[Rfam]
Nucleotides: 069
Stems, first nucleotide, its partner, number of pairs: 001069006
Number, partner (000 for none) and nucleotide at each position: 001069g002068g003067u004066g005065a006064a007000a008000a009000u010000g011000a012000u013000g014000a015000a016000u017000a018000u019000u020000g021000g022000g023000g024000a025000a026000c027000u028000g029000a030000u031000u032000u033000a034000u035000g036000c037000g038000a039000c040000u041000u042000g043000a044000a045000a046000a047000g048000g049000c050000c051000a052000u053000c054000c055000a056000u057000u058000u059000c060000c061000u062000g063000a064006u065005u066004c067003a068002c069001c
Small nucleolar RNA SNORD123: a 69-nucleotide RNA sequence from Ornithorhynchus anatinus. The family has 12 seed sequences and 518 matches in Rfam 15.1. By type it is a C/D-box small nucleolar RNA. NCBI's taxonomy places the organism under Eukaryota, Bilateria, Gnathostomata, Amniota, Ornithorhynchus. Its family is annotated with nucleolus and RNA processing in the Gene Ontology.